[Rfam]
dfrA-dnaX RNA: a 75-nucleotide RNA. The sequence is in the family's curated seed alignment. The base pairs follow the family's consensus structure, which is taken from published work. The family's RNA type in Rfam is small RNA.
RNA sequence: GCGCCUUAUGGCAAAGUUCCUUAUAUUUCAUCAUAACAACCACAAAAAAUAAUCAAAAAGGAGUUAUGAUAUAAU
Numbered sequence: 001g002c003g004c005c006u007u008a009u010g011g012c013a014a015a016g017u018u019c020c021u022u023a024u025a026u027u028u029c030a031u032c033a034u035a036a037c038a039a040c041c042a043c044a045a046a047a048a049a050u051a052a053u054c055a056a057a058a059a060g061g062a063g064u065u066a067u068g069a070u071a072u073a074a075u
Stems, first nucleotide, its partner, number of pairs: 030070008